[Rfam]
The family of this 72-nucleotide RNA sequence from Synaphobranchus kaupii is "Small nucleolar RNA SNORD19".
RNA sequence: GAGAAAGGAUGACUCAAUGGAUGCUGAAAUCAAUGAAGACUUAAAUAAUCCAACUCUGAUCUCAUCUCUGUC
Numbered sequence: 001g002a003g004a005a006a007g008g009a010u011g012a013c014u015c016a017a018u019g020g021a022u023g024c025u026g027a028a029a030u031c032a033a034u035g036a037a038g039a040c041u042u043a044a045a046u047a048a049u050c051c052a053a054c055u056c057u058g059a060u061c062u063c064a065u066c067u068c069u070g071u072c
Stems, first nucleotide, its partner, number of pairs: 001063004
The organism belongs to Synaphobranchus, within Eukaryota. Its family is annotated with RNA processing and nucleolus in the Gene Ontology. It scores 38 bits against the family's covariance model. Rfam classes the family as a C/D-box small nucleolar RNA.